[Rfam]
RNA: SAM riboswitch aptamer (S box leader)
RNA sequence: ACCUUAUCCAGAGUGGUGGAGGGACUAGGCCCUAUGAAACCCGGCAACCGGCUAUAUGCGUGGUGCCAAUACCUACAGAAAAUCUGAAUGAUAAGGA
Numbered sequence: 001a002c003c004u005u006a007u008c009c010a011g012a013g014u015g016g017u018g019g020a021g022g023g024a025c026u027a028g029g030c031c032c033u034a035u036g037a038a039a040c041c042c043g044g045c046a047a048c049c050g051g052c053u054a055u056a057u058g059c060g061u062g063g064u065g066c067c068a069a070u071a072c073c074u075a076c077a078g079a080a081a082a083u084c085u086g087a088a089u090g091a092u093a094a095g096g097a
Stems, first nucleotide, its partner, number of pairs: 002096007013042001015041003021032003026075004043067004048063002051059002071089001076086004